[Rfam]
RNA sequence: AAAUGAAACGUCAUUGAGUGCAGCGUUGAUGAAUGUUCAAUUUAGAAGUGAUUUCCAAUCUUCAUGGUUGGCUUUGGCUUUGGGAAAUUUUCGUCAGCGCUGCACUCAAUUAUGUUUCUA
Numbered sequence: 001a002a003a004u005g006a007a008a009c010g011u012c013a014u015u016g017a018g019u020g021c022a023g024c025g026u027u028g029a030u031g032a033a034u035g036u037u038c039a040a041u042u043u044a045g046a047a048g049u050g051a052u053u054u055c056c057a058a059u060c061u062u063c064a065u066g067g068u069u070g071g072c073u074u075u076g077g078c079u080u081u082g083g084g085a086a087a088u089u090u091u092c093g094u095c096a097g098c099g100c101u102g103c104a105c106u107c108a109a110u111u112a113u114g115u116u117u118c119u120a
Base pairs, nucleotide, nucleotide: 006117007116008115009114010113011112013110014109015108016107017106018105019104020103021102022101023100024099025098026097027096028095030093031092032091
Rfam assigns this 120-nucleotide RNA from Morus notabilis to the family "MIR397 microRNA precursor family". The match comes from Rfam's covariance-model search (74 bits). On this family, see Mica et al., BMC Genomics 2009: "High throughput approaches reveal splicing of primary microRNA transcripts and tissue specific expression of mature microRNAs in Vitis vinifera". The base pairs follow the family's consensus structure, which was predicted with WAR.